Group II catalytic intron D1-D4-2: a 118-nucleotide RNA from Subsaximicrobium wynnwilliamsii. About the family: Group II introns are found in rRNA, tRNA and mRNA of organelles in fungi, plants and protists, and also in mRNA in bacteria.
RNA sequence: GAUGGUAGGUCGAUCAGAGUCGUUGUAUAGGCGAUGGCUCUAAACCACCCAAAGGUGCUGUUGUAAAGAGCAAUGGUAUUGAGCGUUUAGGAGAAUCCAAUCCAUGAGGUUGGCAGGU
Numbered sequence: 001g002a003u004g005g006u007a008g009g010u011c012g013a014u015c016a017g018a019g020u021c022g023u024u025g026u027a028u029a030g031g032c033g034a035u036g037g038c039u040c041u042a043a044a045c046c047a048c049c050c051a052a053a054g055g056u057g058c059u060g061u062u063g064u065a066a067a068g069a070g071c072a073a074u075g076g077u078a079u080u081g082a083g084c085g086u087u088u089a090g091g092a093g094a095a096u097c098c099a100a101u102c103c104a105u106g107a108g109g110u111u112g113g114c115a116g117g118u
Stems, first nucleotide, its partner, number of pairs: 001015003005011001016041006023034004046117001048091002051088003054080002057077003061073004097113005